Description
This 247-nucleotide part of an RNA from Croceivirga radicis belongs to the Rfam family "Bacterial large subunit ribosomal RNA". The family's consensus secondary structure is taken from published work. NCBI's taxonomy places the organism under Bacteria, Bacteroidota, Flavobacteriales, Flavobacteriaceae, Croceivirga. A search with the family's covariance model found it, with a score of 2732 bits.
[Rfam]
RNA sequence: AGAAAAUUGAGUGGAUCUGACUCUAGUACGAGAGGACCGAGUUGGACUGACCGCUGGUGCACCAGUUGUUCCGCCAGGGGCAUUGCUGGGUAGCUAAGUCGGGAUGGGAUAAGCGCUGAAAGCAUAUAAGCGCGAAACCCGCCACAAGAUGGGUUUUCUUUAAAGGACCGUGGGAGACUACCACGUUGAUAGGCCAUAGGUGUAAGUGCAGUGAUGUACGUAGCCGAGUGGUACUAAUUGUCCGUAG
Numbered sequence: 001a002g003a004a005a006a007u008u009g010a011g012u013g014g015a016u017c018u019g020a021c022u023c024u025a026g027u028a029c030g031a032g033a034g035g036a037c038c039g040a041g042u043u044g045g046a047c048u049g050a051c052c053g054c055u056g057g058u059g060c061a062c063c064a065g066u067u068g069u070u071c072c073g074c075c076a077g078g079g080g081c082a083u084u085g086c087u088g089g090g091u092a093g094c095u096a097a098g099u100c101g102g103g104a105u106g107g108g109a110u111a112a113g114c115g116c117u118g119a120a121a122g123c124a125u126a127u128a129a130g131c132g133c134g135a136a137a138c139c140c141g142c143c144a145c146a147a148g149a150u151g152g153g154u155u156u157u158c159u160u161u162a163a164a165g166g167a168c169c170g171u172g173g174g175a176g177a178c179u180a181c182c183a184c185g186u187u188g189a190u191a192g193g194c195c196a197u198a199g200g201u202g203u204a205a206g207u208g209c210a211g212u213g214a215u216g217u218a219c220g221u222a223g224c225c226g227a228g229u230g231g232u233a234c235u236a237a238u239u240g241u242c243c244g245u246a247g
Base pairs, nucleotide, nucleotide: 001159002158003157004156005155006154007153008152011145012144013143014142017045018044019043020042021041022040023039047102048101049100050099051098055096056095057094062089063088064087065086066085067082068081069080070079071078072077106140107139108138113133114132115131116130117129162245165243166242167241168240169185170184171183172182173181190236191235192234193232194231195230196229197228199225200224203220206219207218208217209216210215